[Rfam]
RNA: U4 spliceosomal RNA
RNA sequence: AUUCUUGUGCAGAGACAAUUUCAUAGUCUAUGAAGUUCUACUGAGACGUGAUUAUUGCUGGUUGAAAACUUUAACCAAUUCCCGCCUGGAUGACUUGAAACACAGUCAGCUAUGGCAAUUUUGCUAGUCUCUCAGGAGA
Number, nucleotide and partner (000 for none) at each position: 001a000002u000003u000004c000005u000006u000007g000008u000009g000010c000011a000012g000013a000014g000015a000016c000017a000018a000019u000020u000021u051022c050023a049024u048025a000026g047027u046028c045029u000030a000031u000032g000033a000034a042035g041036u040037u000038c000039u000040a036041c035042u034043g000044a000045g028046a027047c026048g024049u023050g022051a021052u000053u000054a000055u000056u000057g000058c000059u000060g000061g000062u000063u000064g000065a000066a000067a000068a000069c000070u000071u000072u000073a000074a000075c000076c000077a000078a000079u000080u000081c000082c000083c000084g116085c115086c114087u112088g111089g110090a000091u108092g107093a106094c105095u104096u000097g000098a000099a000100a000101c000102a000103c000104a095105g094106u093107c092108a091109g000110c089111u088112a087113u000114g086115g085116c084117a000118a000119u000120u000121u000122u000123g000124c000125u000126a000127g000128u139129c138130u137131c136132u000133c000134a000135g000136g131137a130138g129139a128